ZMP/ZTP riboswitch aptamer (pfl RNA motif): an 82-nucleotide RNA sequence from Paenibacillus catalpae. The source organism's lineage runs through Bacteria, Bacillati, Caryophanales, Paenibacillaceae and Paenibacillus. Rfam links the family to the GO terms regulation of purine nucleotide biosynthetic process and one-carbon metabolic process.
RNA sequence: UUUGGUAUGUGUGACUGGCGUAAACGUGGAGACCCACGAGGGAGCACAUAUUGUCAUAUGCCGUUACGCCUGGGCAGAGGUA
Numbered sequence: 001u002u003u004g005g006u007a008u009g010u011g012u013g014a015c016u017g018g019c020g021u022a023a024a025c026g027u028g029g030a031g032a033c034c035c036a037c038g039a040g041g042g043a044g045c046a047c048a049u050a051u052u053g054u055c056a057u058a059u060g061c062c063g064u065u066a067c068g069c070c071u072g073g074g075c076a077g078a079g080g081u082a
Stems, first nucleotide, its partner, number of pairs: 003053010015041002017070005026037004059076004